[Rfam]
RNA: MIR535 microRNA precursor family
RNA sequence: AAAGUAAGUUGACGAUGAGAGAGAGCACGCUGGUCGGCAAACAUGCAUGGGGACAUGAUUGUCUACCUGCGUGCUCUCUCUCGUUGUCAUCGGCUU
Numbered sequence: 001a002a003a004g005u006a007a008g009u010u011g012a013c014g015a016u017g018a019g020a021g022a023g024a025g026c027a028c029g030c031u032g033g034u035c036g037g038c039a040a041a042c043a044u045g046c047a048u049g050g051g052g053a054c055a056u057g058a059u060u061g062u063c064u065a066c067c068u069g070c071g072u073g074c075u076c077u078c079u080c081u082c083g084u085u086g087u088c089a090u091c092g093g094c095u096u
Stems, first nucleotide, its partner, number of pairs: 010089005016083002020079002023076001025074006032067003